This 170-nucleotide RNA from Clostridium kluyveri belongs to the Rfam family "M-box riboswitch aptamer (ykoK leader)".
Rfam links the family to the GO terms regulation of gene expression and response to magnesium ion.
The pairing is the family consensus, mapped onto this sequence.
Rfam's curators write: M-box riboswitch, also know as ykoK leader is described as a metaloregulatory RNA that sense divalent metals and function as a genetic control element of genes related to divalent metal transport in bacteria. It was first reported upstream of the B.subtilis ykoK gene and genes with related functions in other bacteria.
Rfam's curators put it in the seed alignment.
[Rfam]
RNA sequence: UUUUUGUUAUGUUAGGUGAGGCUCCUAUAUAGAUAUAUGCUACUGCCCGGAAACAUCGAGAGAUGCCAAUGGGUCAACAGGUAUUACCGAAUUAAGGUUUUACUUAAUGUAGCUGGACAAAAUUUAGUCUAAAGCUAUAUAGUGCUAAAACUCAGACGAUUUAAAAGUUU
Numbered sequence: 001u002u003u004u005u006g007u008u009a010u011g012u013u014a015g016g017u018g019a020g021g022c023u024c025c026u027a028u029a030u031a032g033a034u035a036u037a038u039g040c041u042a043c044u045g046c047c048c049g050g051a052a053a054c055a056u057c058g059a060g061a062g063a064u065g066c067c068a069a070u071g072g073g074u075c076a077a078c079a080g081g082u083a084u085u086a087c088c089g090a091a092u093u094a095a096g097g098u099u100u101u102a103c104u105u106a107a108u109g110u111a112g113c114u115g116g117a118c119a120a121a122a123u124u125u126a127g128u129c130u131a132a133a134g135c136u137a138u139a140u141a142g143u144g145c146u147a148a149a150a151c152u153c154a155g156a157c158g159a160u161u162u163a164a165a166a167g168u169u170u
Stems, first nucleotide, its partner, number of pairs: 005166001007164003011157002013095001015152003020146003025142008039113005045074005054065004080104004086098003115130003